[Rfam]
RNA sequence: UUUAUUUAUUCGCUGAGUUCAUUUAUGAAGCGGGGGACCCAAUUUUAGGGGCGAAUUCCAUAUGGAUAGGAUAACUCUUUCAAUCCGAGCCCGUCAGCUAACCUCGUAAGCGUUGAAAGGGGAGCCU
Numbered sequence: 001u002u003u004a005u006u007u008a009u010u011c012g013c014u015g016a017g018u019u020c021a022u023u024u025a026u027g028a029a030g031c032g033g034g035g036g037a038c039c040c041a042a043u044u045u046u047a048g049g050g051g052c053g054a055a056u057u058c059c060a061u062a063u064g065g066a067u068a069g070g071a072u073a074a075c076u077c078u079u080u081c082a083a084u085c086c087g088a089g090c091c092c093g094u095c096a097g098c099u100a101a102c103c104u105c106g107u108a109a110g111c112g113u114u115g116a117a118a119g120g121g122g123a124g125c126c127u
Stems, first nucleotide, its partner, number of pairs: 011112004018029003030107006040048001049092003057066003069086004
Dot-bracket structure: ..........((((...(((......)))((((((....(.......)(((.....(((....)))..((((..........))))...))).........)))))).))))...............

c-di-AMP riboswitch aptamer (ydaO/yuaA leader): a 127-nucleotide RNA from Alkaliphilus peptidifermentans. NCBI's taxonomy places the organism under Bacteria, Bacillota, Clostridia, Peptostreptococcales, Alkaliphilus peptidifermentans. A search with the family's covariance model found it, with a score of 105 bits. About the family: This family represents a conserved RNA structure found upstream of the ydaO and yuaA genes in Bacillus subtilis and related genes in other bacteria.